[Rfam]
RNA sequence: AACCAAUGAUGAAAAUGAUUCUGCCAUAUGAAACUACUGAUUUCACUUUUUAACCGUUCCAAAUUUUCUGAGGUU
Numbered sequence: 001a002a003c004c005a006a007u008g009a010u011g012a013a014a015a016u017g018a019u020u021c022u023g024c025c026a027u028a029u030g031a032a033a034c035u036a037c038u039g040a041u042u043u044c045a046c047u048u049u050u051u052a053a054c055c056g057u058u059c060c061a062a063a064u065u066u067u068c069u070g071a072g073g074u075u
Base pairs, nucleotide, nucleotide: 001075002074003073004072
Notes:
The record is a 75-nucleotide sequence from Xenopus laevis, which matches "Small nucleolar RNA SNORD47" in Rfam. Lineage of the source: Eukaryota > Eumetazoa > Euteleostomi > Xenopodinae > Xenopus. The match comes from Rfam's covariance-model search (75 bits). The literature on the family includes a 2002 paper in Mol Cell Biol by Galardi et al., "Purified box C/D snoRNPs are able to reproduce site-specific 2'-O-methylation of target RNA in vitro". The base pairs follow the family's consensus structure, which was predicted with ILM.